[Rfam]
The record is a 74-nucleotide RNA sequence from Thiosulfatimonas sediminis, which matches "tRNA" in Rfam. By type it is a transfer RNA.

RNA sequence: GGGCCUUUAGCUCAGUUGGUUAGAGCAUCCGACUCAUAAUCGGCAGGUCCACGGUUCAAGUCCGUGAAGGCCCA
Dot-bracket structure: (((((((..((((.........))))..((((.......))))......(((((.......)))))))))))).
About the family: Transfer RNA (tRNA) molecules are approximately 80 nucleotides in length. Their secondary structure includes four short double-helical elements and three loops (D, anti-codon, and T loops). Further hydrogen bonds mediate the characteristic L-shaped molecular structure. tRNAs have two regions of fundamental functional importance: the anti-codon, which is responsible for specific mRNA codon recognition, and the 3' end, to which the tRNAs corresponding amino acid is attached (by aminoacyl-tRNA synthetases). tRNAs cope with the degeneracy of the genetic code in two manners: having more than one tRNA (with a specific anti-codon) for a particular amino acid; and 'wobble' base-pairing, i.e. permitting non-standard base-pairing at the 3rd anti-codon position. The base pairs follow the family's consensus structure, which is taken from published work. NCBI's taxonomy places the organism under Bacteria, Pseudomonadati, Pseudomonadota, Piscirickettsiaceae, Thiosulfatimonas. The match comes from Rfam's covariance-model search (71 bits).